[Rfam]
RNA sequence: CGCCCUCAGCCUUACUCCAGGGGCUUUCUGCUGUGAAGUGCCCUGGCAUUGCCUGGGGGUACAUGAAAAAAGCACAGACCCUCCCCAGGAAGACUCUGUUUUCUUGUGGGGCCUACGAAUUGAGCUGACAGC
Numbered sequence: 001c002g003c004c005c006u007c008a009g010c011c012u013u014a015c016u017c018c019a020g021g022g023g024c025u026u027u028c029u030g031c032u033g034u035g036a037a038g039u040g041c042c043c044u045g046g047c048a049u050u051g052c053c054u055g056g057g058g059g060u061a062c063a064u065g066a067a068a069a070a071a072g073c074a075c076a077g078a079c080c081c082u083c084c085c086c087a088g089g090a091a092g093a094c095u096c097u098g099u100u101u102u103c104u105u106g107u108g109g110g111g112c113c114u115a116c117g118a119a120u121u122g123a124g125c126u127g128a129c130a131g132c
Base pairs, nucleotide, nucleotide: 003059004058005057006056007055008054009053011051017046018045019044020043021042022041023039024038025037026036027035071126072125073124075122076121083111084110085109086108087107090105091104092103093102
Dot-bracket structure: ..(((((((.(.....(((((((((((.......))))).))))))....).)))))))...........(((.((......(((((..((((........)))).))))).........)).)))......
Shown here is a 132-nucleotide RNA sequence from Rhinolophus ferrumequinum, a member of the family "Small nucleolar RNA SNORA49".
It scores 133 bits against the family's covariance model.
The base pairs follow the family's consensus structure, which was predicted with RNAalifold.
Rfam links the family to the GO terms RNA processing and nucleolus.
Rfam's curators write: The snoRNA ACA49 has no identified RNA target. NB genomic sequence 1-nt different from published.
The family has 21 seed sequences and 722 matches in Rfam 15.1.